[Rfam]
Shown here is a 79-nucleotide RNA from Bradyrhizobium sp. LMTR 3, a member of the family "chrB-a RNA". The base pairs follow the family's consensus structure, which is taken from published work.
RNA sequence: GCCAUGGGGGUUUUGCGAUCCCCCCACGAGGCGACAUGCCCAAGUAUCGCGUCCCGGUUUUCCGGAGGCGCAAGGCAUG
Number, nucleotide and partner (000 for none) at each position: 001g000002c000003c000004a000005u026006g025007g024008g023009g022010g021011u000012u000013u000014u000015g000016c000017g000018a000019u000020c000021c010022c009023c008024c007025c006026a005027c000028g000029a000030g000031g000032c000033g000034a000035c000036a000037u000038g000039c000040c000041c000042a000043a000044g000045u000046a000047u000048c000049g071050c070051g069052u068053c067054c000055c000056g000057g000058u000059u000060u000061u000062c000063c000064g000065g000066a000067g053068g052069c051070g050071c049072a000073a000074g000075g000076c000077a000078u000079g000